[Rfam]
The record is a 93-nucleotide RNA sequence from Thermodesulfobacterium geofontis, which matches "Selenocysteine transfer RNA" in Rfam. A search with the family's covariance model found it, with a score of 79 bits.
RNA sequence: GGAAGCGUAAGGGGGCUGGUGUCCCUCCCGGGCUUCAAACCCGGUGCACCCCAAAAUAAAAGGGGUGGGUGGGUUCAAUUCCCACACGCUUCC
Number, nucleotide and partner (000 for none) at each position: 001g093002g092003a091004a090005g089006c088007g087008u086009a000010a000011g026012g025013g024014g023015g022016c021017u000018g000019g000020u000021g016022u015023c014024c013025c012026u011027c000028c044029c043030g042031g041032g040033c000034u000035u000036c000037a000038a000039a000040c032041c031042c030043g029044g028045u000046g000047c067048a066049c065050c064051c063052c000053a000054a000055a000056a000057u000058a000059a000060a000061a000062g000063g051064g050065g049066u048067g047068g000069g000070u084071g083072g082073g081074u000075u000076c000077a000078a000079u000080u000081c073082c072083c071084a070085c000086a008087c007088g006089c005090u004091u003092c002093c001

Record summary:
Pairs were carried over by alignment from the consensus structure, which is taken from published work.